The family of this 285-nucleotide RNA from Cytospora leucostoma is "A. fumigatus sRNA Afu_309". A reference for the family is Jochl et al. (2008), "Small ncRNA transcriptome analysis from Aspergillus fumigatus suggests a novel mechanism for regulation of protein synthesis", Nucleic Acids Res. The base pairs follow the family's consensus structure, which was predicted with WAR. By type it is a small RNA.

[Rfam]
RNA sequence: ACCCACGUACAUACACUGGAUCUGUGCCCAGCGGUCCCUUGUUCGUCUCGGCGAAUUCAGGGUUGAUUGCUGCGGCAGUUCGAUUUAUCCAAGGAGCCAUCAAAUCCCCAUGAUGUCAAUCUUCCAAUCGACAGGUCCUAGAGCAAUCGGGGGCUGGGAAGUCAGGUUCGCCGUAACAGGCUUGAGCCUGGCUGAACAGCUCUAUGAAGACGCCAUAUUCCACACCUUUUUUCCGAGAUCGUCGAUCCAUGAGGUUGGGGAUAACCAUGGCUUUUGCCUACAGUU
Numbered sequence: 001a002c003c004c005a006c007g008u009a010c011a012u013a014c015a016c017u018g019g020a021u022c023u024g025u026g027c028c029c030a031g032c033g034g035u036c037c038c039u040u041g042u043u044c045g046u047c048u049c050g051g052c053g054a055a056u057u058c059a060g061g062g063u064u065g066a067u068u069g070c071u072g073c074g075g076c077a078g079u080u081c082g083a084u085u086u087a088u089c090c091a092a093g094g095a096g097c098c099a100u101c102a103a104a105u106c107c108c109c110a111u112g113a114u115g116u117c118a119a120u121c122u123u124c125c126a127a128u129c130g131a132c133a134g135g136u137c138c139u140a141g142a143g144c145a146a147u148c149g150g151g152g153g154c155u156g157g158g159a160a161g162u163c164a165g166g167u168u169c170g171c172c173g174u175a176a177c178a179g180g181c182u183u184g185a186g187c188c189u190g191g192c193u194g195a196a197c198a199g200c201u202c203u204a205u206g207a208a209g210a211c212g213c214c215a216u217a218u219u220c221c222a223c224a225c226c227u228u229u230u231u232u233c234c235g236a237g238a239u240c241g242u243c244g245a246u247c248c249a250u251g252a253g254g255u256u257g258g259g260g261a262u263a264a265c266c267a268u269g270g271c272u273u274u275u276g277c278c279u280a281c282a283g284u285u
Stems, first nucleotide, its partner, number of pairs: 018138008026076003029072003033068004037062005043055001044053003085130001087128002093117002096114001098112001150203002160193010170181002209278001211276001212271005225260003229257001233254002237247004